[Rfam]
RNA sequence: AUCGUGCUCCGGGACCCGGUGAAAAUCCGAACCUGCGGUGACAGCCCGCUAAUUGACGGCACAUCCACGUGCCCGAUACCUGCAAGGUGAAAUUCCUUGGCAGACAGUACAGUCUGGAUGGAAGGUAGCACGAG
Numbered sequence: 001a002u003c004g005u006g007c008u009c010c011g012g013g014a015c016c017c018g019g020u021g022a023a024a025a026u027c028c029g030a031a032c033c034u035g036c037g038g039u040g041a042c043a044g045c046c047c048g049c050u051a052a053u054u055g056a057c058g059g060c061a062c063a064u065c066c067a068c069g070u071g072c073c074c075g076a077u078a079c080c081u082g083c084a085a086g087g088u089g090a091a092a093u094u095c096c097u098u099g100g101c102a103g104a105c106a107g108u109a110c111a112g113u114c115u116g117g118a119u120g121g122a123a124g125g126u127a128g129c130a131c132g133a134g
Base pairs, nucleotide, nucleotide: 003132004131005130006129007128008127009125010124017029018028019027031113032112033103034102035049036048037047038046044101045100053078083099084098085097086096087095105116106115107114

The record is a 134-nucleotide RNA sequence from Rothia nasimurium, which matches "FMN riboswitch aptamer (RFN element)" in Rfam.
Lineage of the source: Bacteria > Actinomycetota > Micrococcales > Micrococcaceae > Rothia.
The RFN element is a highly conserved domain that is found frequently in the 5'-untranslated regions of prokaryotic mRNAs that encode for flavin mononucleotide (FMN) biosynthesis and transport proteins.